[Rfam]
RNA sequence: UGAGUAAACCGGGUGGUCGCGGGCGCAGGAGCCGAAAGGCCGCGCCUAAGGAAAGUCCGGGCUCCGCAGGGCAGGGUGCUGGGUAACGCCCAGUGGGGGCGACCCCAAGGAAAGUGCCACAGAAAUGCAGACCGCCUGCUUGAGAGGUGAGAAGUAAGAGGCAAGCGGCGAGCAACGGGAAAACAAGACAGUUAUUUUUCACUUCCGGCCUCUCACCUCUCACUUCUCAAACAGGCAAGGGUGGAACGGUGCGGUAAGAGCGCACCAGCGGCCGGGUGACCGUCCGGCUAGGUAAACCCCGCCCGGAGCAAGACCGAAUAGGGGGGGCAACGGAGUGGCCCGCUCCGCUCCCGGGUAAGGUCGCAAGAGGCGGCGGGCAACAGCCGCCCUCAGAUAGAUGAUCACCCCAGACAGAACCCGGCUUACAGGUUUACUCAUAAG
Numbered sequence: 001u002g003a004g005u006a007a008a009c010c011g012g013g014u015g016g017u018c019g020c021g022g023g024c025g026c027a028g029g030a031g032c033c034g035a036a037a038g039g040c041c042g043c044g045c046c047u048a049a050g051g052a053a054a055g056u057c058c059g060g061g062c063u064c065c066g067c068a069g070g071g072c073a074g075g076g077u078g079c080u081g082g083g084u085a086a087c088g089c090c091c092a093g094u095g096g097g098g099g100c101g102a103c104c105c106c107a108a109g110g111a112a113a114g115u116g117c118c119a120c121a122g123a124a125a126u127g128c129a130g131a132c133c134g135c136c137u138g139c140u141u142g143a144g145a146g147g148u149g150a151g152a153a154g155u156a157a158g159a160g161g162c163a164a165g166c167g168g169c170g171a172g173c174a175a176c177g178g179g180a181a182a183a184c185a186a187g188a189c190a191g192u193u194a195u196u197u198u199u200c201a202c203u204u205c206c207g208g209c210c211u212c213u214c215a216c217c218u219c220u221c222a223c224u225u226c227u228c229a230a231a232c233a234g235g236c237a238a239g240g241g242u243g244g245a246a247c248g249g250u251g252c253g254g255u256a257a258g259a260g261c262g263c264a265c266c267a268g269c270g271g272c273c274g275g276g277u278g279a280c281c282g283u284c285c286g287g288c289u290a291g292g293u294a295a296a297c298c299c300c301g302c303c304c305g306g307a308g309c310a311a312g313a314c315c316g317a318a319u320a321g322g323g324g325g326g327g328c329a330a331c332g333g334a335g336u337g338g339c340c341c342g343c344u345c346c347g348c349u350c351c352c353g354g355g356u357a358a359g360g361u362c363g364c365a366a367g368a369g370g371c372g373g374c375g376g377g378c379a380a381c382a383g384c385c386g387c388c389c390u391c392a393g394a395u396a397g398a399u400g401a402u403c404a405c406c407c408c409a410g411a412c413a414g415a416a417c418c419c420g421g422c423u424u425a426c427a428g429g430u431u432u433a434c435u436c437a438u439a440a441g
Base pairs, nucleotide, nucleotide: 001437002436003435004434005433006432007431008430009429010428011426012406013405014404015403016402017401018400021047022046023045024044025043026042028040053424054423055422057421058420059419060418061417062308063307064306065305069341070340071339072338074304075303076302077301078300079093080092081091082090083089094108095106096105097104098103109299110298114297115296116293117292118291132240133239134236135235136234137233138232140230141229142228143227144226145225146224147223148222149221150220151219152218248266249265250264251263252262253261268288269286270285271284273282274281275280312362313361314360315359322352323351324350325349326348332346333345334344335343336342369388370387371386372385373384374383376381
Bacterial RNase P class A: a 441-nucleotide sequence from Desulfocucumis palustris. NCBI's taxonomy places the organism under Bacteria, Bacillota, Clostridia, Desulfocucumaceae, Desulfocucumis. It scores 285 bits against the family's covariance model.